[Rfam]
Bacterial RNase P class A: a 457-nucleotide sequence from Denitromonas iodatirespirans. A search with the family's covariance model found it, with a score of 246 bits. Its family is annotated with dimeric ribonuclease P complex, tRNA processing and ribonuclease P activity in the Gene Ontology.
RNA sequence: GAAGUUCGCCAGGCAGUCGCGACACGCGCGAGCGUAUCGAGGAAAGUCCGGGCCACACAGAGCAGGAUGCCGGCUAACGGCCGGGCGCCAUACGCCGAAAGGCCAAAGCGACGGAAAGUAUCGCCCGAAGGGGCGAUCAUCGCGUGAUCUGUGAUCUGCGCCGCUUGCGGUGGGGAAACCCGAGCAGACGCGCGAUGGCAACAGAAAACAAACCGCCGACGGCCGCAGAUGUCGGGUCAGGGUGAAACGGUGGGGUAAGAGCCCACCGCGGACGUGGUGACACGGACGGCACGGCAAACCCCAUCCGGGGCAAGGCCAAAUAGGGGAGCAUUGGCGUGGCUCGCGUCGCUCCCGGGUAGGCUGCUAGAGCGGCACGGUAACGUGUCGCCGAGAGGAAUGACUGCCCGGCGCCCGCAAGGGCGUUUGACAGAACCCGGCUUAUCGGCGGACUUCCCAC
Numbered sequence: 001g002a003a004g005u006u007c008g009c010c011a012g013g014c015a016g017u018c019g020c021g022a023c024a025c026g027c028g029c030g031a032g033c034g035u036a037u038c039g040a041g042g043a044a045a046g047u048c049c050g051g052g053c054c055a056c057a058c059a060g061a062g063c064a065g066g067a068u069g070c071c072g073g074c075u076a077a078c079g080g081c082c083g084g085g086c087g088c089c090a091u092a093c094g095c096c097g098a099a100a101g102g103c104c105a106a107a108g109c110g111a112c113g114g115a116a117a118g119u120a121u122c123g124c125c126c127g128a129a130g131g132g133g134c135g136a137u138c139a140u141c142g143c144g145u146g147a148u149c150u151g152u153g154a155u156c157u158g159c160g161c162c163g164c165u166u167g168c169g170g171u172g173g174g175g176a177a178a179c180c181c182g183a184g185c186a187g188a189c190g191c192g193c194g195a196u197g198g199c200a201a202c203a204g205a206a207a208a209c210a211a212a213c214c215g216c217c218g219a220c221g222g223c224c225g226c227a228g229a230u231g232u233c234g235g236g237u238c239a240g241g242g243u244g245a246a247a248c249g250g251u252g253g254g255g256u257a258a259g260a261g262c263c264c265a266c267c268g269c270g271g272a273c274g275u276g277g278u279g280a281c282a283c284g285g286a287c288g289g290c291a292c293g294g295c296a297a298a299c300c301c302c303a304u305c306c307g308g309g310g311c312a313a314g315g316c317c318a319a320a321u322a323g324g325g326g327a328g329c330a331u332u333g334g335c336g337u338g339g340c341u342c343g344c345g346u347c348g349c350u351c352c353c354g355g356g357u358a359g360g361c362u363g364c365u366a367g368a369g370c371g372g373c374a375c376g377g378u379a380a381c382g383u384g385u386c387g388c389c390g391a392g393a394g395g396a397a398u399g400a401c402u403g404c405c406c407g408g409c410g411c412c413c414g415c416a417a418g419g420g421c422g423u424u425u426g427a428c429a430g431a432a433c434c435c436g437g438c439u440u441a442u443c444g445g446c447g448g449a450c451u452u453c454c455c456a457c
Stems, first nucleotide, its partner, number of pairs: 001453010011442001012405007020039003024035004044440003048437005053310002056307001060342004065306005070084005085189001086187001190301001192300001198295002213241002215237003218233004223228001249267006268290001269288002273284004314362004324353006333347005369388008